[Rfam]
RNA sequence: UGCACCCGGCAAACAGGCACUACCAGCUCCUGCUGAAUCCCCCAGGUCUUGACAGAAGCAAGGGUAGGUGGUCGUAGCGGUGAGAUGUCGGUUUGCCUUUU
Numbered sequence: 001u002g003c004a005c006c007c008g009g010c011a012a013a014c015a016g017g018c019a020c021u022a023c024c025a026g027c028u029c030c031u032g033c034u035g036a037a038u039c040c041c042c043c044a045g046g047u048c049u050u051g052a053c054a055g056a057a058g059c060a061a062g063g064g065u066a067g068g069u070g071g072u073c074g075u076a077g078c079g080g081u082g083a084g085a086u087g088u089c090g091g092u093u094u095g096c097c098u099u100u101u
Stems, first nucleotide, its partner, number of pairs: 008097007016089004020084002022081002